[Rfam]
This 87-nucleotide RNA sequence from Muraenolepis orangiensis belongs to the Rfam family "Small nucleolar RNA SNORD60". The family has 22 seed sequences and 825 matches in Rfam 15.1. It scores 61 bits against the family's covariance model. The literature on the family includes a 1996 paper in Cell by Kiss-Laszlo et al., "Site-specific ribose methylation of preribosomal RNA: a novel function for small nucleolar RNAs".
RNA sequence: AGCCGCUGAUGACAAACCCUUUACUUCUGACACCUCAUAUGAGCGCUGCUAAGGCAGCCCUUGAUUCUACAAUUUAACCUGAGGCUC
Numbered sequence: 001a002g003c004c005g006c007u008g009a010u011g012a013c014a015a016a017c018c019c020u021u022u023a024c025u026u027c028u029g030a031c032a033c034c035u036c037a038u039a040u041g042a043g044c045g046c047u048g049c050u051a052a053g054g055c056a057g058c059c060c061u062u063g064a065u066u067c068u069a070c071a072a073u074u075u076a077a078c079c080u081g082a083g084g085c086u087c
Stems, first nucleotide, its partner, number of pairs: 001086004045058005